[Rfam]
RNA sequence: UAAAACAAUUGCAUAUCGAUUCGUAUAUUUCCGGGGAUUGGCCCGGAUGUCUCUACAAGGUCACCGCAAAGGACCUGGCUACGAAAAACGCGCAAGGCGGA
Numbered sequence: 001u002a003a004a005a006c007a008a009u010u011g012c013a014u015a016u017c018g019a020u021u022c023g024u025a026u027a028u029u030u031c032c033g034g035g036g037a038u039u040g041g042c043c044c045g046g047a048u049g050u051c052u053c054u055a056c057a058a059g060g061u062c063a064c065c066g067c068a069a070a071g072g073a074c075c076u077g078g079c080u081a082c083g084a085a086a087a088a089c090g091c092g093c094a095a096g097g098c099g100g101a
Stems, first nucleotide, its partner, number of pairs: 020085006030047006058076005